TPP riboswitch aptamer (THI element): a 96-nucleotide RNA from Bacteroides sp. CAG:927. Gene Ontology term of the family: thiamine pyrophosphate binding. Taxonomically the source falls in Bacteroides (Bacteria, Pseudomonadati, Bacteroidia, Bacteroidales). Pairs were carried over by alignment from the consensus structure, which is taken from published work.
RNA sequence: GUUACAACAAAGGGGUGCCGCUUCAUGUGGCUGAGAUUCAUACCCUCUGAACCUGAUACGGUUAGCACCGGCGCAGGGAUUGUUAGAGACCAACAC
Numbered sequence: 001g002u003u004a005c006a007a008c009a010a011a012g013g014g015g016u017g018c019c020g021c022u023u024c025a026u027g028u029g030g031c032u033g034a035g036a037u038u039c040a041u042a043c044c045c046u047c048u049g050a051a052c053c054u055g056a057u058a059c060g061g062u063u064a065g066c067a068c069c070g071g072c073g074c075a076g077g078g079a080u081u082g083u084u085a086g087a088g089a090c091c092a093a094c095a096c
Stems, first nucleotide, its partner, number of pairs: 006084005011046004016040001017031005052077004059070003